The record is a 100-nucleotide sequence from Paenibacillus nanensis, which matches "Purine riboswitch aptamer" in Rfam. The source organism's lineage runs through Bacteria, Bacilli, Caryophanales, Paenibacillaceae and Paenibacillus. Pairs were carried over by alignment from the consensus structure, which is taken from published work. The match comes from Rfam's covariance-model search (64 bits).

RNA sequence: CUACUAAAGGCACUAAUGUCUCGUAUAACCUCAAUAAUAUGGUUUGAGGGUCUCUACUAGGAACCGAACAAUCCUGACUACGAGUAUAGGCGGCGCGUAU
Numbered sequence: 001c002u003a004c005u006a007a008a009g010g011c012a013c014u015a016a017u018g019u020c021u022c023g024u025a026u027a028a029c030c031u032c033a034a035u036a037a038u039a040u041g042g043u044u045u046g047a048g049g050g051u052c053u054c055u056a057c058u059a060g061g062a063a064c065c066g067a068a069c070a071a072u073c074c075u076g077a078c079u080a081c082g083a084g085u086a087u088a089g090g091c092g093g094c095g096c097g098u099a100u
Base pairs, nucleotide, nucleotide: 020084021083022082023081024080025079029049030048031047032046033045034044058076059075060074061073062072